[Rfam]
RNA: Ribosomal S15 leader
Organism: Sodalis glossinidius
RNA sequence: GCGGGUGGCUGAAUUAGAGAUCGGCGCCCAUCUAUUUCACAAUCAUUUUGGAGUGUUAUAAUGUCUCUAAGUGUUGAAGCGAAAGCGAAAAUUGUUUCUGAUUUCGGCAGUGAUGCC
Numbered sequence: 001g002c003g004g005g006u007g008g009c010u011g012a013a014u015u016a017g018a019g020a021u022c023g024g025c026g027c028c029c030a031u032c033u034a035u036u037u038c039a040c041a042a043u044c045a046u047u048u049u050g051g052a053g054u055g056u057u058a059u060a061a062u063g064u065c066u067c068u069a070a071g072u073g074u075u076g077a078a079g080c081g082a083a084a085g086c087g088a089a090a091a092u093u094g095u096u097u098c099u100g101a102u103u104u105c106g107g108c109a110g111u112g113a114u115g116c117c
Base pairs, nucleotide, nucleotide: 008025009024010023011022012021047071048070049069050068051067052066053065